[Rfam]
RNA sequence: UUGUAUCUGUGCUUUAUGGCUUUUUAUUCCUAUGUGAUUGCUUCUGUAACCUCGCGUAGGGGUGAAAGCCAUGGAACACGGUGCAA
Numbered sequence: 001u002u003g004u005a006u007c008u009g010u011g012c013u014u015u016a017u018g019g020c021u022u023u024u025u026a027u028u029c030c031u032a033u034g035u036g037a038u039u040g041c042u043u044c045u046g047u048a049a050c051c052u053c054g055c056g057u058a059g060g061g062g063u064g065a066a067a068g069c070c071a072u073g074g075a076a077c078a079c080g081g082u083g084c085a086a
Base pairs, nucleotide, nucleotide: 002086007081008080009079010078011077013075014074015073016072017071018070019069020068021067022066023065026063027062028061029060030059031058032057033056034055035054036053037052